RNA: malK-I RNA
RNA sequence: UUGACUGCGUGGGCGGCACUCCACACAAUGCUUUCCACAGCUUUAAUGAAGGAGGAAUUUAUUUUCCCUGAGGCUCAGGGUGCGGCAGCGUGGAGAUCUGCCGUAAUGCGGGUGGCGAUGCCCCUGCGAGUGCGUCUGAGGCGGAGGCCCGGCGCAUAGAGUCGGAAAGAAUGGCA
Number, nucleotide and partner (000 for none) at each position: 001u000002u000003g000004a000005c000006u000007g000008c000009g038010u037011g036012g035013g034014c000015g032016g031017c030018a029019c000020u000021c000022c000023a000024c000025a000026c000027a000028a000029u018030g017031c016032u015033u000034u013035c012036c011037a010038c009039a000040g000041c000042u000043u000044u000045a000046a000047u000048g000049a000050a000051g000052g000053a000054g000055g000056a000057a000058u000059u000060u000061a000062u000063u000064u000065u000066c080067c079068c078069u077070g000071a000072g163073g162074c161075u160076c159077a069078g068079g067080g066081u105082g104083c103084g102085g101086c100087a099088g098089c000090g097091u096092g000093g000094a000095g000096a091097u090098c088099u087100g086101c085102c084103g083104u082105a081106a000107u000108g127109c126110g125111g124112g123113u000114g122115g121116c120117g000118a000119u000120g116121c115122c114123c112124c111125u110126g109127c108128g000129a000130g157131u156132g155133c154134g153135u152136c151137u000138g000139a000140g149141g148142c147143g000144g000145a000146g000147g142148c141149c140150c000151g136152g135153c134154g133155c132156a131157u130158a000159g076160a075161g074162u073163c072164g000165g000166a000167a000168a000169g000170a000171a000172u000173g000174g000175c000176a000